[Rfam]
RNA sequence: AGAACGCGCUGUUACUGACGGAUAAUCGUGGGCUACCACGGGGAAGCAGCGUGAUACAAACCGCCGACCGUCUGGGCAAGCGCA
Numbered sequence: 001a002g003a004a005c006g007c008g009c010u011g012u013u014a015c016u017g018a019c020g021g022a023u024a025a026u027c028g029u030g031g032g033c034u035a036c037c038a039c040g041g042g043g044a045a046g047c048a049g050c051g052u053g054a055u056a057c058a059a060a061c062c063g064c065c066g067a068c069c070g071u072c073u074g075g076g077c078a079a080g081c082g083c084a
Stems, first nucleotide, its partner, number of pairs: 003055001005053008015043002017072005028039004063077003
A member of the RNA family "ZMP/ZTP riboswitch aptamer (pfl RNA motif)" from Parafannyhessea umbonata, 84 nucleotides long. The source organism's lineage runs through Bacteria, Actinomycetota, Coriobacteriia, Atopobiaceae and Parafannyhessea. A search with the family's covariance model found it, with a score of 58 bits.